Shown here is a 59-nucleotide RNA from Usitatibacter rugosus, a member of the family "chrB-b RNA". The match comes from Rfam's covariance-model search (49 bits). The family's consensus secondary structure is taken from published work. Taxonomically the source falls in Usitatibacter (Bacteria, Pseudomonadati, Pseudomonadota, Nitrosomonadales).
RNA sequence: CCGGGGACCCGCAGCCCCCGGCGCCCUCGAGGCAAGACGGUGUCCCGUCCAAGCACUGC
Numbered sequence: 001c002c003g004g005g006g007a008c009c010c011g012c013a014g015c016c017c018c019c020g021g022c023g024c025c026c027u028c029g030a031g032g033c034a035a036g037a038c039g040g041u042g043u044c045c046c047g048u049c050c051a052a053g054c055a056c057u058g059c
Base pairs, nucleotide, nucleotide: 001021002020003019004018005017011059012058013057014056036049037048038047039046040045